[Rfam]
FMN riboswitch aptamer (RFN element): a 134-nucleotide sequence from Merdimmobilis hominis. Rfam describes the family as follows. The RFN element is a highly conserved domain that is found frequently in the 5'-untranslated regions of prokaryotic mRNAs that encode for flavin mononucleotide (FMN) biosynthesis and transport proteins. This element is a metabolite-dependent riboswitch that directly binds FMN in the absence of proteins. In Bacillus subtilis, the riboswitch most likely controls gene expression by causing premature transcription termination within the 5' untranslated region of the ribDEAHT operon and precluding access to the ribosome-binding site of ypaA mRNA.The FMN riboswitch structure, reported in present an FMN-bound six-stem junction, adopts a butterfly-like scaffold, stapled together by opposingly directed but nearly identically folded peripheral domains. Pairs were carried over by alignment from the consensus structure, which is taken from published work. It scores 101 bits against the family's covariance model.
RNA sequence: AAUCUGUUUCAGGGCGGAGUGAAAGUCUCCACUGGUGGUGAUCGGAAAUGAUUCCGUAAGUCCGCGAGCGCAUCUGCGCAGAACUGGUGUGAAUCCAGUACCAACGGUUACAGUCCGGAUGAAAGAAAUAUGCA
Number, nucleotide and partner (000 for none) at each position: 001a000002a000003u132004c000005u130006g129007u128008u127009u126010c125011a000012g000013g000014g000015c000016g000017g029018a028019g027020u000021g000022a000023a000024a000025g000026u000027c019028u018029c017030c000031a114032c113033u103034g102035g065036u064037g063038g062039u000040g000041a000042u000043c000044g000045g000046a000047a000048a000049u000050g000051a000052u000053u000054c000055c000056g000057u000058a000059a000060g101061u100062c038063c037064g036065c035066g000067a000068g079069c078070g077071c000072a000073u000074c000075u000076g000077c070078g069079c068080a000081g000082a000083a099084c098085u097086g096087g095088u000089g000090u000091g000092a000093a000094u000095c087096c086097a085098g084099u083100a061101c060102c034103a033104a000105c117106g116107g115108u000109u000110a000111c000112a000113g032114u031115c107116c106117g105118g000119a000120u000121g000122a000123a000124a000125g010126a009127a008128a007129u006130a005131u000132g003133c000134a000